[Rfam]
RNA sequence: UGAGAUGGAAUCAGCGUUCUGACAUGCAAUUUCACGCUGAUUCCAUCUCAUG
Numbered sequence: 001u002g003a004g005a006u007g008g009a010a011u012c013a014g015c016g017u018u019c020u021g022a023c024a025u026g027c028a029a030u031u032u033c034a035c036g037c038u039g040a041u042u043c044c045a046u047c048u049c050a051u052g
Stems, first nucleotide, its partner, number of pairs: 001050017018029001

The family of this 52-nucleotide RNA from Solanum commersonii is "MIR1886 microRNA precursor family". The match comes from Rfam's covariance-model search (67 bits). The base pairs follow the family's consensus structure, which was predicted with RNAalifold. Gene Ontology terms of the family: RISC complex and miRNA-mediated post-transcriptional gene silencing.